[Rfam]
RNA sequence: AUUCCCGCGCUUUAACUACACACACGCUUCGUCACAUGCGAUAGGGUCCUGAGGAUUUGCUUUAGCAAAGUCUUGCGGGUGUCGUAUGGGAAGUGUGGAGGCCUAAC
Numbered sequence: 001a002u003u004c005c006c007g008c009g010c011u012u013u014a015a016c017u018a019c020a021c022a023c024a025c026g027c028u029u030c031g032u033c034a035c036a037u038g039c040g041a042u043a044g045g046g047u048c049c050u051g052a053g054g055a056u057u058u059g060c061u062u063u064a065g066c067a068a069a070g071u072c073u074u075g076c077g078g079g080u081g082u083c084g085u086a087u088g089g090g091a092a093g094u095g096u097g098g099a100g101g102c103c104u105a106a107c
Base pairs, nucleotide, nucleotide: 023097024096025095026094027093028092029091030090035088036087037086038085039084040083041082042081043080048079049078050077051076
This 107-nucleotide RNA sequence from Legionella septentrionalis belongs to the Rfam family "t44 RNA". Taxonomically the source falls in Legionella (Bacteria, Pseudomonadati, Gammaproteobacteria, Legionellales).